[Rfam]
RNA sequence: CCAGACAAAGGCAAACCGCUUGAGAAGGCGGGACGCAAAGUUACGGGUCCGUGGGCAGCCAACCAAGGUUGGUUGUCUCAGGAAAGCCGAACUGCCGAGG
Numbered sequence: 001c002c003a004g005a006c007a008a009a010g011g012c013a014a015a016c017c018g019c020u021u022g023a024g025a026a027g028g029c030g031g032g033a034c035g036c037a038a039a040g041u042u043a044c045g046g047g048u049c050c051g052u053g054g055g056c057a058g059c060c061a062a063c064c065a066a067g068g069u070u071g072g073u074u075g076u077c078u079c080a081g082g083a084a085a086g087c088c089g090a091a092c093u094g095c096c097g098a099g100g
Stems, first nucleotide, its partner, number of pairs: 001100001004096001011036002016031006034086001039093004044089003048083002
A member of the RNA family "c-di-GMP-I-GGC riboswitch aptamer" from Stieleria marina, 100 nucleotides long. On this family, see Weinberg et al., Proc Natl Acad Sci U S A 2017: "Bioinformatic analysis of riboswitch structures uncovers variant classes with altered ligand specificity". Lineage of the source: Bacteria > Pseudomonadati > Planctomycetia > Pirellulaceae > Stieleria.